[Rfam]
RNA: Bacteroides sRNA BTnc049
Organism: Bacteroides graminisolvens
RNA sequence: ACAGAUAGGAGUUGUGAAACUCCGCAAUAGAAUAGUUUAGUUAAGUCUAGUUUAGUUUUUGUGUUAGUAUCCUCCUUCCGGUAGCGUCCGGGUAAGGAGGAUAUUUUUU
Numbered sequence: 001a002c003a004g005a006u007a008g009g010a011g012u013u014g015u016g017a018a019a020c021u022c023c024g025c026a027a028u029a030g031a032a033u034a035g036u037u038u039a040g041u042u043a044a045g046u047c048u049a050g051u052u053u054a055g056u057u058u059u060u061g062u063g064u065u066a067g068u069a070u071c072c073u074c075c076u077u078c079c080g081g082u083a084g085c086g087u088c089c090g091g092g093u094a095a096g097g098a099g100g101a102u103a104u105u106u107u108u109u
Stems, first nucleotide, its partner, number of pairs: 001062005008023006034053002037050004069102009079090003